[Rfam]
RNA: mir-160 microRNA precursor family
Organism: Gossypium gossypioides
RNA sequence: AUCUGCCUGGCUCCCUGAAUGCCAUCUAAGAAGCUUUGUCAAGCACAGUUGGCUGCCUUCUUACAUGGCAUGAGGGGAGUCAUGCAGGU
Numbered sequence: 001a002u003c004u005g006c007c008u009g010g011c012u013c014c015c016u017g018a019a020u021g022c023c024a025u026c027u028a029a030g031a032a033g034c035u036u037u038g039u040c041a042a043g044c045a046c047a048g049u050u051g052g053c054u055g056c057c058u059u060c061u062u063a064c065a066u067g068g069c070a071u072g073a074g075g076g077g078a079g080u081c082a083u084g085c086a087g088g089u
Stems, first nucleotide, its partner, number of pairs: 001089006008082007016074001019071006027063003